[Rfam]
RNA: raiA RNA
RNA sequence: UUCUUUCGAGUCUGUAGUUGCGGGUUUCACAACCUCAGUCCACGGCAGAUGCGGUCGAAAGGACCCACGUAAGCCGCGCUUUUCAGCGCGACGAUCAUGGCGCAUCCUAGAGGUAAGUCGCACCGUCCGCUACCUUGCGCGGCACAUGGCUGCGCCGGACGAGAGGGUACCGGGUGCAAGCUCGACCCCGGUGCGCGAGUGUGGGGGCAAAGACUAGGUCAGUCGGAAGAG
Numbered sequence: 001u002u003c004u005u006u007c008g009a010g011u012c013u014g015u016a017g018u019u020g021c022g023g024g025u026u027u028c029a030c031a032a033c034c035u036c037a038g039u040c041c042a043c044g045g046c047a048g049a050u051g052c053g054g055u056c057g058a059a060a061g062g063a064c065c066c067a068c069g070u071a072a073g074c075c076g077c078g079c080u081u082u083u084c085a086g087c088g089c090g091a092c093g094a095u096c097a098u099g100g101c102g103c104a105u106c107c108u109a110g111a112g113g114u115a116a117g118u119c120g121c122a123c124c125g126u127c128c129g130c131u132a133c134c135u136u137g138c139g140c141g142g143c144a145c146a147u148g149g150c151u152g153c154g155c156c157g158g159a160c161g162a163g164a165g166g167g168u169a170c171c172g173g174g175u176g177c178a179a180g181c182u183c184g185a186c187c188c189c190g191g192u193g194c195g196c197g198a199g200u201g202u203g204g205g206g207g208c209a210a211a212g213a214c215u216a217g218g219u220c221a222g223u224c225g226g227a228a229g230a231g
Stems, first nucleotide, its partner, number of pairs: 001231009012222003015216005042202003045055001048106006064100002069095001073092001075090005098209001119195005124161005165188004